[Rfam]
c-di-AMP riboswitch aptamer (ydaO/yuaA leader): a 192-nucleotide RNA from Paenibacillus albicereus. Rfam links the family to the GO terms regulation of gene expression and cyclic-di-AMP binding. The source organism's lineage runs through Bacteria, Bacillota, Bacilli, Paenibacillaceae and Paenibacillus.

RNA sequence: AUUUCUAUUCUGCUGAAUUCCACGAAGGUGGAAGCGGGGGAACCAACCGCAGGCGUCUUUUCGCGCCUGCCGGGGUGAAUCCGGCGCGCACCCGAUGCGCGGCUGCCGAAGCCGCUGCGGUCUGCGCCCGGUAGGGCUACUCUCUUGGCCCGAAUCCGUCAGCUAACCCCGUAAGCAACCAAAGGAGAGGUU
Numbered sequence: 001a002u003u004u005c006u007a008u009u010c011u012g013c014u015g016a017a018u019u020c021c022a023c024g025a026a027g028g029u030g031g032a033a034g035c036g037g038g039g040g041a042a043c044c045a046a047c048c049g050c051a052g053g054c055g056u057c058u059u060u061u062c063g064c065g066c067c068u069g070c071c072g073g074g075g076u077g078a079a080u081c082c083g084g085c086g087c088g089c090a091c092c093c094g095a096u097g098c099g100c101g102g103c104u105g106c107c108g109a110a111g112c113c114g115c116u117g118c119g120g121u122c123u124g125c126g127c128c129c130g131g132u133a134g135g136g137c138u139a140c141u142c143u144c145u146u147g148g149c150c151c152g153a154a155u156c157c158g159u160c161a162g163c164u165a166a167c168c169c170c171g172u173a174a175g176c177a178a179c180c181a182a183a184g185g186a187g188a189g190g191u192u
Base pairs, nucleotide, nucleotide: 011177012176013175014174018033019032020031021030022029034172035171036170037169038168039167044072073157074156075155081131082130083129084128134151135150136149137148